Background:
A member of the RNA family "mir-2568 microRNA precursor family" from Drosophila persimilis, 87 nucleotides long. NCBI's taxonomy places the organism under Eukaryota, Protostomia, Hexapoda, Ephydroidea, Sophophora. A search with the family's covariance model found it, with a score of 92 bits. Its family is annotated with miRNA-mediated post-transcriptional gene silencing and RISC complex in the Gene Ontology.
[Rfam]
Nucleotides: 087
Stems, first nucleotide, its partner, number of pairs: 002086003006082001009079004015072004020068001022066014
Number, partner (000 for none) and nucleotide at each position: 001000g002086g003085a004084g005000c006082u007000c008000u009079a010078u011077c012076g013000c014000a015072g016071c017070a018069a019000a020068c021000u022066u023065c024064c025063u026062c027061g028060g029059g030058u031057c032056a033055u034054g035053g036000c037000u038000g039000u040000a041000g042000u043000u044000u045000u046000u047000g048000a049000a050000a051000g052000c053035c054034c055033a056032u057031g058030g059029c060028u061027c062026g063025a064024g065023g066022a067000u068020g069018u070017u071016g072015c073000c074000u075000g076012u077011g078010a079009u080000g081000c082006a083000a084004c085003u086002c087000a